[Rfam]
Rfam assigns this 102-nucleotide RNA sequence from Dermabacter sp. HFH0086 to the family "mraW RNA". By type it is a cis-regulatory element. The organism belongs to Dermabacter, within Bacteria.

RNA sequence: UAGACGACGUGCCGCGAGGCAUCUCUUCGCUUGCGCCCCGACGCAUCUUCCCCGGUGGCGGGACGCAAGCGAGGAGAUGUCUGACGGUAUGACGUCACCCGC
Numbered sequence: 001u002a003g004a005c006g007a008c009g010u011g012c013c014g015c016g017a018g019g020c021a022u023c024u025c026u027u028c029g030c031u032u033g034c035g036c037c038c039c040g041a042c043g044c045a046u047c048u049u050c051c052c053c054g055g056u057g058g059c060g061g062g063a064c065g066c067a068a069g070c071g072a073g074g075a076g077a078u079g080u081c082u083g084a085c086g087g088u089a090u091g092a093c094g095u096c097a098c099c100c101g102c
Stems, first nucleotide, its partner, number of pairs: 010089005018081002021078015037062004042057003